This 77-nucleotide RNA sequence from Alligator sinensis belongs to the Rfam family "Mammalian CPEB3 ribozyme". Pairs were carried over by alignment from the consensus structure, which is taken from published work. A reference for the family is Salehi-Ashtiani et al. (2006), "A genomewide search for ribozymes reveals an HDV-like sequence in the human CPEB3 gene", Science.
RNA sequence: GUUGACAGCCUAGAGGUUGCAGCAGAGGUGCUCACAGCACAGCCCUGUCAGAGUCUAAUGAAUCUGCAAAUUCUGCU
Numbered sequence: 001g002u003u004g005a006c007a008g009c010c011u012a013g014a015g016g017u018u019g020c021a022g023c024a025g026a027g028g029u030g031c032u033c034a035c036a037g038c039a040c041a042g043c044c045c046u047g048u049c050a051g052a053g054u055c056u057a058a059u060g061a062a063u064c065u066g067c068a069a070a071u072u073c074u075g076c077u
Base pairs, nucleotide, nucleotide: 013045015044016043017042018041021077022076023075024074025073026072027071028040029039030038049066050065051064052063054061055060

From the family's description: The mammalian CPEB3 ribozyme is a self cleaving RNA located in the second intron of the CPEB3 gene which belongs to a family of genes regulating messenger RNA polyadenylation. This ribozyme is highly conserved and found only in mammals. The CPEB3 ribozyme is structurally and biochemically related to the human hepatitis delta virus (HDV) ribozyme and the HDV ribozyme is proposed to have arisen from the human transcriptome. There is currently only one other known self cleaving ribozyme in mammals, the CoTC motif.